The family of this 75-nucleotide RNA from Octopus sinensis is "mir-1 microRNA precursor family". The literature on the family includes a 2001 paper in Cell by Ambros, "microRNAs: tiny regulators with great potential". Rfam's curators write: This family represents the microRNA (miRNA) mir-1 family. miRNAs are transcribed as ~70nt precursors (modelled here) and subsequently processed by the Dicer enzyme to give a ~22nt product. The match comes from Rfam's covariance-model search (50 bits).
RNA sequence: AUGUCGAUUAUAUAUUUCUUUACUACCCACAAGGGGCUAAACAUUGUGGGUAGUAAAGAAAUAUAUAAUCGACAU
Numbered sequence: 001a002u003g004u005c006g007a008u009u010a011u012a013u014a015u016u017u018c019u020u021u022a023c024u025a026c027c028c029a030c031a032a033g034g035g036g037c038u039a040a041a042c043a044u045u046g047u048g049g050g051u052a053g054u055a056a057a058g059a060a061a062u063a064u065a066u067a068a069u070c071g072a073c074a075u
Stems, first nucleotide, its partner, number of pairs: 007069019027049005